RNA sequence: CCAACCAUAGCUCAAUUGGUAGAGCAUCAGACUGUAGCGGUUACAAGCAAUUAUCUGAGGGUCGCUGGUUCGAUUCCGGCUGGUUGGA
Numbered sequence: 001c002c003a004a005c006c007a008u009a010g011c012u013c014a015a016u017u018g019g020u021a022g023a024g025c026a027u028c029a030g031a032c033u034g035u036a037g038c039g040g041u042u043a044c045a046a047g048c049a050a051u052u053a054u055c056u057g058a059g060g061g062u063c064g065c066u067g068g069u070u071c072g073a074u075u076c077c078g079g080c081u082g083g084u085u086g087g088a
Stems, first nucleotide, its partner, number of pairs: 001087007010025004027058005064080005
The family of this 88-nucleotide RNA from Fonticula alba is "tRNA". The base pairs follow the family's consensus structure, which is taken from published work.